Small nucleolar RNA SNORA57: a 145-nucleotide RNA from Macaca fascicularis. A reference for the family is Vitali et al. (2003), "Identification of 13 novel human modification guide RNAs", Nucleic Acids Res. It is annotated as an H/ACA-box small nucleolar RNA. The source organism's lineage runs through Eukaryota, Bilateria, Craniata, Primates and Macaca. U99 belongs to the H/ACA class of snoRNAs which are thought to guide the sites of modification of uridines to pseudouridines, the target for this family is unknown.

RNA sequence: CCUCCCUUUCUUGGCAGGGACCAGGUAUGUAUGUUCUCUAUCAUGUCUGGAGGCAGAGGGAAAGCGCUCCAGUGCCCUGGGCAUCAUGUCUUUGGUGCUGGUGGCUUCCUGUCUGCCAUUUCUAACCUCAGGCACCAGGACGCAG
Numbered sequence: 001c002c003u004c005c006c007u008u009u010c011u012u013g014g015c016a017g018g019g020a021c022c023a024g025g026u027a028u029g030u031a032u033g034u035u036c037u038c039u040a041u042c043a044u045g046u047c048u049g050g051a052g053g054c055a056g057a058g059g060g061a062a063a064g065c066g067c068u069c070c071a072g073u074g075c076c077c078u079g080g081g082c083a084u085c086a087u088g089u090c091u092u093u094g095g096u097g098c099u100g101g102u103g104g105c106u107u108c109c110u111g112u113c114u115g116c117c118a119u120u121u122c123u124a125a126c127c128u129c130a131g132g133c134a135c136c137a138g139g140a141c142g143c144a145g
Stems, first nucleotide, its partner, number of pairs: 001053005016039005022033002025030001080136002084132001099118006